RNA sequence: CUCUUAUCCAGAGUAGGUGGAGGGACUGGCCCGAUGAAACCCGGCAACCGACAUGAAAAUGCACGGUGCUAAAUCCUGCAGGAAAUACUGGGAGAUGAGAG
Numbered sequence: 001c002u003c004u005u006a007u008c009c010a011g012a013g014u015a016g017g018u019g020g021a022g023g024g025a026c027u028g029g030c031c032c033g034a035u036g037a038a039a040c041c042c043g044g045c046a047a048c049c050g051a052c053a054u055g056a057a058a059a060u061g062c063a064c065g066g067u068g069c070u071a072a073a074u075c076c077u078g079c080a081g082g083a084a085a086u087a088c089u090g091g092g093a094g095a096u097g098a099g100a101g
Base pairs, nucleotide, nucleotide: 001101002100003099004098005097006096007095008094013042016041017040018039022032023031024030026078028076029075043070044069045068046067048066049065050062074093079090080089081088
Overview:
Shown here is a 101-nucleotide RNA from Desulfitobacterium hafniense, a member of the family "SAM riboswitch aptamer (S box leader)". The base pairs follow the family's consensus structure, which is taken from published work. Its family is annotated with regulation of gene expression in the Gene Ontology. Taxonomically the source falls in Desulfitobacterium hafniense (Bacteria, Clostridia, Desulfitobacteriaceae, Desulfitobacterium).